[Rfam]
RNA: SAM riboswitch aptamer (S box leader)
RNA sequence: CUCUUAUCAAGAGUGGCGGAGGGAAUAGGCCCUACGAUGCCCGGCAACCAACAAGUUCUCAACUUGGAAAGGUGCUAAAUCCUACAAAUUCUAAUACGAAUUUGGAAGAUAAGAG
Numbered sequence: 001c002u003c004u005u006a007u008c009a010a011g012a013g014u015g016g017c018g019g020a021g022g023g024a025a026u027a028g029g030c031c032c033u034a035c036g037a038u039g040c041c042c043g044g045c046a047a048c049c050a051a052c053a054a055g056u057u058c059u060c061a062a063c064u065u066g067g068a069a070a071g072g073u074g075c076u077a078a079a080u081c082c083u084a085c086a087a088a089u090u091c092u093a094a095u096a097c098g099a100a101u102u103u104g105g106a107a108g109a110u111a112a113g114a115g
Stems, first nucleotide, its partner, number of pairs: 001115008013042001015041003021032003026084004043076004048072002052066004080107001085104006